[Rfam]
RNA sequence: GAGACACCCUUAUGGAAUAGGACUUGCUUCAGUGGGGCUUUGGUGUUCACUGAGUCUUCCCCUUGAGUGUGUCGCU
Numbered sequence: 001g002a003g004a005c006a007c008c009c010u011u012a013u014g015g016a017a018u019a020g021g022a023c024u025u026g027c028u029u030c031a032g033u034g035g036g037g038c039u040u041u042g043g044u045g046u047u048c049a050c051u052g053a054g055u056c057u058u059c060c061c062c063u064u065g066a067g068u069g070u071g072u073c074g075c076u
Stems, first nucleotide, its partner, number of pairs: 001075001003073005009067004014062002019057001021056003029053008037044002
Overview: The family of this 76-nucleotide RNA sequence from Cnephaeus nilssonii is "mir-9229 microRNA precursor family". Rfam links the family to the GO terms miRNA-mediated post-transcriptional gene silencing and RISC complex. The family has 7 seed sequences and 27,225 matches in Rfam 15.1.